[Rfam]
RNA sequence: UAAACGGCUCUUUUCAGAGCCACCACACGAUUCCGUGAAAAAGACA
Numbered sequence: 001u002a003a004a005c006g007g008c009u010c011u012u013u014u015c016a017g018a019g020c021c022a023c024c025a026c027a028c029g030a031u032u033c034c035g036u037g038a039a040a041a042a043g044a045c046a
Base pairs, nucleotide, nucleotide: 006021007020008019009018010017011016